[Rfam]
Small nucleolar RNA snoR74: a 129-nucleotide RNA sequence from Carya illinoinensis. Its family is annotated with RNA processing and nucleolus in the Gene Ontology. NCBI's taxonomy places the organism under Eukaryota, Embryophyta, Spermatophyta, eudicotyledons, Carya. Pairs were carried over by alignment from the consensus structure, which was predicted with WAR.

RNA sequence: UAAAAAGCAGUGCCCUUUUGCCUUUUGUGAAGAGGGCUCUCGUAAAUUUCAGGGAAAGUACUUGCAUUCUUUUUGGGUGAACCUAUGUAGUUGUUAGUGACUGAAGGUUCAGUAAAUGAUGCCACAUCC
Numbered sequence: 001u002a003a004a005a006a007g008c009a010g011u012g013c014c015c016u017u018u019u020g021c022c023u024u025u026u027g028u029g030a031a032g033a034g035g036g037c038u039c040u041c042g043u044a045a046a047u048u049u050c051a052g053g054g055a056a057a058g059u060a061c062u063u064g065c066a067u068u069c070u071u072u073u074u075g076g077g078u079g080a081a082c083c084u085a086u087g088u089a090g091u092u093g094u095u096a097g098u099g100a101c102u103g104a105a106g107g108u109u110c111a112g113u114a115a116a117u118g119a120u121g122c123c124a125c126a127u128c129c
Base pairs, nucleotide, nucleotide: 005049006048007047012037014035015034016033017032065121066120067119068118070116071115078111079110080109081108082107083106084105